[Rfam]
The family of this 85-nucleotide sequence from Pongo abelii is "mir-571 microRNA precursor family". The match comes from Rfam's covariance-model search (97 bits).

RNA sequence: AGUAAGACCAAACUCAGUGUGCCAUUUCCUUGUCUGUAGCCAAGUCUGUGGGCCUUUGAGUUGGCCACCUGGGUGAGGACCUCCU
Dot-bracket structure: ((.(.(.((..((((((((.((((.(((...((((((((......))))))))....))).)))))).))))))..)).).).))